This 129-nucleotide sequence from Aneurinibacillus migulanus belongs to the Rfam family "c-di-AMP riboswitch aptamer (ydaO/yuaA leader)".
This family represents a conserved RNA structure found upstream of the ydaO and yuaA genes in Bacillus subtilis and related genes in other bacteria.
Taxonomically the source falls in Aneurinibacillus (Bacteria, Bacilli, Caryophanales, Paenibacillaceae).
It scores 98 bits against the family's covariance model.
RNA sequence: UGAUUCAAUGCGCCGAAUCCGAAAGGAGCGGGGGACCCACGCAAUAGGGGUGAAUCACCUCUGGUGUAGGGCAUUCAACCUUAUGUCCGAACCCGUCAGCUAACCUCGCAGGCAAAAUAAGGAGAGGAA
Numbered sequence: 001u002g003a004u005u006c007a008a009u010g011c012g013c014c015g016a017a018u019c020c021g022a023a024a025g026g027a028g029c030g031g032g033g034g035a036c037c038c039a040c041g042c043a044a045u046a047g048g049g050g051u052g053a054a055u056c057a058c059c060u061c062u063g064g065u066g067u068a069g070g071g072c073a074u075u076c077a078a079c080c081u082u083a084u085g086u087c088c089g090a091a092c093c094c095g096u097c098a099g100c101u102a103a104c105c106u107c108g109c110a111g112g113c114a115a116a117a118u119a120a121g122g123a124g125a126g127g128a129a
Base pairs, nucleotide, nucleotide: 012113013112014111018027019026020025028109029108030107031106032105033104038047048094049093050092056066057065058064059063069088070087071086072085